[Rfam]
RNA sequence: AAAGACUGCCAUUACAGGAGUUGUUCCCCAACCAGGGGCAACUUUUCCAUAUUCUGAGUUC
Numbered sequence: 001a002a003a004g005a006c007u008g009c010c011a012u013u014a015c016a017g018g019a020g021u022u023g024u025u026c027c028c029c030a031a032c033c034a035g036g037g038g039c040a041a042c043u044u045u046u047c048c049a050u051a052u053u054c055u056g057a058g059u060u061c
Base pairs, nucleotide, nucleotide: 017045018044019043020042021041022040023039024038025037026036027035
This 61-nucleotide sequence from Dactylococcopsis salina belongs to the Rfam family "Plastid-psbN 5UTR RNA".
NCBI's taxonomy places the organism under Bacteria, Cyanophyceae, Cymatolegaceae, Dactylococcopsis, Dactylococcopsis salina.
It is annotated as a cis-regulatory element.
Rfam describes the family as follows. Plastid psbN is a non-coding RNA (ncRNA) recognised in plastids. It was reported as a conserved 11 stem-loop in the prime untranslated region (5UTR) of psbN genes. It has been reported that the motif is retained in a subset of mature transcripts in barley, which can suggests a possible role in transcript alternative 5 prime processing.
A search with the family's covariance model found it, with a score of 62 bits.